[Rfam]
About this RNA:
This 114-nucleotide RNA sequence from Streptomyces kaniharaensis belongs to the Rfam family "ALIL pseudoknot". It scores 69 bits against the family's covariance model. Taxonomically the source falls in Streptomyces (Bacteria, Bacillati, Actinomycetota, Actinomycetes). Pairs were carried over by alignment from the consensus structure, which is taken from published work.
RNA sequence: GGAUUUCUUCGCGCGGGAGCUCGACCCGCGACGCUCGCGCUGAUCCGGUUCGUCGAGGCGCACAGGAAGCCGCACGGGGUCGAGCGGAUCUGCCGCAUACUGCGGAUCCCCCCG
Numbered sequence: 001g002g003a004u005u006u007c008u009u010c011g012c013g014c015g016g017g018a019g020c021u022c023g024a025c026c027c028g029c030g031a032c033g034c035u036c037g038c039g040c041u042g043a044u045c046c047g048g049u050u051c052g053u054c055g056a057g058g059c060g061c062a063c064a065g066g067a068a069g070c071c072g073c074a075c076g077g078g079g080u081c082g083a084g085c086g087g088a089u090c091u092g093c094c095g096c097a098u099a100c101u102g103c104g105g106a107u108c109c110c111c112c113c114g
Base pairs, nucleotide, nucleotide: 013029014028015027016026017025075114076113077112078111079110086109087108089106090105091104092103093102095100